[Rfam]
RNA sequence: CGUUUUGGCUGAAUUAGUGAUCGGCUAAAGCACCUUUUAAAUUUAAUUUUUGGAGUUAUUAUGUCACUAAGCAAUCAAGAAAAAAUCGAUAUCAUUGCUAAAUUCGCACGUGCUGAA
Numbered sequence: 001c002g003u004u005u006u007g008g009c010u011g012a013a014u015u016a017g018u019g020a021u022c023g024g025c026u027a028a029a030g031c032a033c034c035u036u037u038u039a040a041a042u043u044u045a046a047u048u049u050u051u052g053g054a055g056u057u058a059u060u061a062u063g064u065c066a067c068u069a070a071g072c073a074a075u076c077a078a079g080a081a082a083a084a085a086u087c088g089a090u091a092u093c094a095u096u097g098c099u100a101a102a103u104u105c106g107c108a109c110g111u112g113c114u115g116a117a
Base pairs, nucleotide, nucleotide: 007026008025009024010023011022012021049071050070051069052068053067055065
RNA: Ribosomal S15 leader
Organism: Pseudoalteromonas translucida